RNA sequence: AGACUUAUUUGGUUGGGAGGAUUUCGUAAUCAGAAGGCGGGACCUCCAUGGCGAGGCUUGGUCAUUGCACUUUCGACCAGGCUGACCAGUGUGGCAGACCCGAGUUGGGAUUGGCCAACAGCAUAAUUUUUGCGUUUGGGGACAGCGUUCGCGCUUCCCCGC
Number, nucleotide and partner (000 for none) at each position: 001a000002g000003a000004c000005u000006u000007a000008u000009u000010u000011g000012g122013u121014u120015g119016g047017g046018a045019g044020g043021a000022u000023u041024u040025c039026g038027u037028a000029a000030u000031c000032a000033g000034a000035a000036g000037g027038c026039g025040g024041g023042a000043c020044c019045u018046c017047c016048a090049u089050g000051g087052c000053g086054a000055g083056g082057c081058u000059u079060g078061g077062u076063c075064a000065u000066u000067g000068c000069a000070c000071u000072u000073u000074c000075g063076a062077c061078c060079a059080g000081g057082c056083u055084g000085a000086c053087c051088a000089g049090u048091g000092u117093g116094g115095c000096a000097g112098a000099c108100c107101c000102g000103a000104g000105u000106u000107g100108g099109g000110a000111u000112u097113g000114g000115c094116c093117a092118a000119c015120a014121g013122c012123a000124u000125a000126a000127u000128u000129u000130u000131u000132g000133c000134g000135u000136u000137u161138g160139g159140g158141g157142a000143c000144a155145g154146c153147g152148u000149u000150c000151g000152c147153g146154c145155u144156u000157c141158c140159c139160c138161g137162c000
The record is a 162-nucleotide RNA sequence, which matches "U1 spliceosomal RNA" in Rfam. U1 is a small nuclear RNA (snRNA) component of the spliceosome (involved in pre-mRNA splicing). Its 5' end forms complementary base pairs with the 5' splice junction, thus defining the 5' donor site of an intron. There are significant differences in sequence and secondary structure between metazoan and yeast U1 snRNAs, the latter being much longer (568 nucleotides as compared to 164 nucleotides in human). Rfam's curators put it in the seed alignment. The base pairs follow the family's consensus structure, which is taken from published work.